[Rfam]
RNA sequence: GAGUUACCGUGUCCGGCCAGGUUAACCCCUUCAGGGGGGGAGCCGUAGGGAAACCGAGUCUGAACAGGGCGUCAGAGUCGGGCGUGGUAGACGCGAAACCAGGUGAACUACCCAUGGGCAGGUUGAAGCGGCCCUAACCGGCCGUGGAGGACCGAACCCACCAGUGUUGAAAAACUGGGGGAGGACCCGUGGGGAGGAGUGAAAGUCUAAUCAAACCUGGAGAUAGCUCGUU
Numbered sequence: 001g002a003g004u005u006a007c008c009g010u011g012u013c014c015g016g017c018c019a020g021g022u023u024a025a026c027c028c029c030u031u032c033a034g035g036g037g038g039g040g041a042g043c044c045g046u047a048g049g050g051a052a053a054c055c056g057a058g059u060c061u062g063a064a065c066a067g068g069g070c071g072u073c074a075g076a077g078u079c080g081g082g083c084g085u086g087g088u089a090g091a092c093g094c095g096a097a098a099c100c101a102g103g104u105g106a107a108c109u110a111c112c113c114a115u116g117g118g119c120a121g122g123u124u125g126a127a128g129c130g131g132c133c134c135u136a137a138c139c140g141g142c143c144g145u146g147g148a149g150g151a152c153c154g155a156a157c158c159c160a161c162c163a164g165u166g167u168u169g170a171a172a173a174a175c176u177g178g179g180g181g182a183g184g185a186c187c188c189g190u191g192g193g194g195a196g197g198a199g200u201g202a203a204a205g206u207c208u209a210a211u212c213a214a215a216c217c218u219g220g221a222g223a224u225a226g227c228u229c230g231u232u
Base pairs, nucleotide, nucleotide: 005089006088007087008086009085010084011083012082013081014080015079016078017077020044021043022042023041026038027037028036048055049054058070059069060068061067092230093229095227099220100219101218102217103216104215108196109195111193112192113191114190115189116188117187118186119184121153122152123151124150128145129144130143131142132141133140157181158180159179161178162177163176164175165174198208199207

A member of the RNA family "Bacterial large subunit ribosomal RNA" from Paludisphaera borealis, 232 nucleotides of a longer RNA. Pairs were carried over by alignment from the consensus structure, which is taken from published work.